This 136-nucleotide RNA from Pasteurellaceae bacterium 15-036681 belongs to the Rfam family "Histidine operon leader".
For this family Rfam cites "Attenuation in amino acid biosynthetic operons" (Kolter and Yanofsky, Annu Rev Genet, 1982).
The family's RNA type in Rfam is cis-regulatory leader.
The family's consensus secondary structure is taken from published work.
Rfam describes the family as follows. At least 6 amino acid operons are known to be regulated by attenuation. In each a leader sequence of 150-200 bp is found upstream of the first gene in the operon. This leader sequence can assume two different secondary structures known as the terminator and the anti-terminator structure. In each case the leader also codes for very short peptide sequence that is rich in the end product amino acid of the operon. The terminator structure is recognised as a termination signal for RNA polymerase and the operon is not transcribed. This structure forms when the cell has an excess of the regulatory amino acid and ribosome movement over the leader transcript is not impeded. When there is a deficiency of the charged tRNA of the regulatory amino acid the ribosome translating the leader peptide stalls and the antiterminator structure can form. This allows RNA polymerase to transcribe the operon. In the Rfam alignment the consensus structure is of the terminator structure.
A search with the family's covariance model found it, with a score of 60 bits.

RNA sequence: CCAUCAUCACCAUUUACCUGAAUAAUCUUUCGGGCAUUUGGCUUGUUCGGAAGACACUUCCGAGCGUGGCACAUUGAGAGUAGCAUCCAAAACCAUAUUCUCCCCCUCGGAAGAGCGCUUUCGAGGGGGUUUCUUU
Numbered sequence: 001c002c003a004u005c006a007u008c009a010c011c012a013u014u015u016a017c018c019u020g021a022a023u024a025a026u027c028u029u030u031c032g033g034g035c036a037u038u039u040g041g042c043u044u045g046u047u048c049g050g051a052a053g054a055c056a057c058u059u060c061c062g063a064g065c066g067u068g069g070c071a072c073a074u075u076g077a078g079a080g081u082a083g084c085a086u087c088c089a090a091a092a093c094c095a096u097a098u099u100c101u102c103c104c105c106c107u108c109g110g111a112a113g114a115g116c117g118c119u120u121u122c123g124a125g126g127g128g129g130u131u132u133c134u135u136u
Stems, first nucleotide, its partner, number of pairs: 008045002011040002017034005046064008102129012